Rfam assigns this 99-nucleotide RNA sequence from Caenorhabditis brenneri to the family "mir-36 microRNA precursor family".
It scores 58 bits against the family's covariance model.
For this family Rfam cites "Dynamic expression of small non-coding RNAs, including novel microRNAs and piRNAs/21U-RNAs, during Caenorhabditis elegans development" (Kato et al., Genome Biol, 2009).

RNA sequence: UUCCUCCCCGAGACGGGAACCGAGCUGGUUUCUUCUACGGUGAUAAUUCCCUGAUGUGUCUAUCACCGGGAGUAAUUGGCUUGGGUCCCGUCUCGGACC
Numbered sequence: 001u002u003c004c005u006c007c008c009c010g011a012g013a014c015g016g017g018a019a020c021c022g023a024g025c026u027g028g029u030u031u032c033u034u035c036u037a038c039g040g041u042g043a044u045a046a047u048u049c050c051c052u053g054a055u056g057u058g059u060c061u062a063u064c065a066c067c068g069g070g071a072g073u074a075a076u077u078g079g080c081u082u083g084g085g086u087c088c089c090g091u092c093u094c095g096g097a098c099c
Base pairs, nucleotide, nucleotide: 015089016088017087018086020084021083023081024080025079026078027077028076029075030074032072034071035070036069038068040066041065042064043063044062045061